[Rfam]
Nucleotides: 272
Base pairs, nucleotide, nucleotide: 001244002243003242004241006238007237008236010234015217016216017178018177019176021175022174023173024172027169028168029167033084034083035082037081038080039079040078092155093154094153095152096151097150106119107118130146189204190203220231221230222229249272250271251270252269253268254267255266256265257264258263
Number, partner (000 for none) and nucleotide at each position: 001244c002243a003242a004241u005000a006238a007237u008236c009000g010234c011000a012000u013000u014000u015217u016216c017178c018177u019176c020000u021175a022174g023173g024172g025000a026000a027169g028168u029167c030000g031000g032000c033084g034083c035082a036000u037081u038080c039079c040078u041000g042000u043000c044000g045000g046000u047000u048000g049000u050000a051000g052000u053000g054000u055000c056000a057000u058000a059000c060000g061000a062000u063000a064000c065000g066000c067000u068000a069000u070000a071000a072000c073000g074000g075000a076000a077000g078040g079039g080038g081037g082035u083034g084033u085000u086000g087000c088000c089000c090000a091000u092155g093154u094153c095152u096151g097150u098000u099000u100000u101000u102000g103000a104000g105000a106119c107118a108000c109000u110000g111000g112000u113000u114000c115000u116000a117000a118107u119106g120000a121000u122000c123000g124000c125000u126000u127000u128000c129000g130146c131000a132000a133000c134000a135000c136000u137000c138000g139000u140000u141000g142000u143000a144000a145000c146130g147000a148000u149000u150097a151096c152095a153094g154093a155092c156000c157000a158000g159000a160000a161000a162000a163000a164000a165000u166000a167029g168028a169027c170000c171000u172024c173023c174022c175021u176019g177018a178017g179000u180000u181000u182000a183000g184000c185000a186000g187000c188000c189204g190203g191000g192000u193000g194000a195000g196000g197000u198000c199000u200000a201000u202000u203190c204189c205000u206000u207000g208000u209000u210000c211000g212000c213000g214000c215000u216016g217015a218000c219000c220231c221230c222229u223000c224000u225000u226000g227000a228000a229222g230221g231220g232000u233000a234010g235000c236008g237007a238006u239000u240000c241004a242003u243002u244001g245000c246000u247000g248000a249272c250271c251270g252269g253268a254267g255266a256265u257264a258263u259000u260000a261000g262000c263258g264257u265256a266255u267254c268253u269252u270251c271250g272249g